[Rfam]
RNA sequence: UGAGUUGUGGUGUAAUUGGCAACACGAAACCUUUUGGUGGCUUUAACAUCAGUUCAAAUCUGAUCAACUCAG
Numbered sequence: 001u002g003a004g005u006u007g008u009g010g011u012g013u014a015a016u017u018g019g020c021a022a023c024a025c026g027a028a029a030c031c032u033u034u035u036g037g038u039g040g041c042u043u044u045a046a047c048a049u050c051a052g053u054u055c056a057a058a059u060c061u062g063a064u065c066a067a068c069u070c071a072g
Base pairs, nucleotide, nucleotide: 001071002070003069004068005067006066007065010025011024012023013022027043028042030040031039048064049063050062051061052060
This 72-nucleotide sequence from Hericium alpestre belongs to the Rfam family "tRNA".
The family's consensus secondary structure is taken from published work.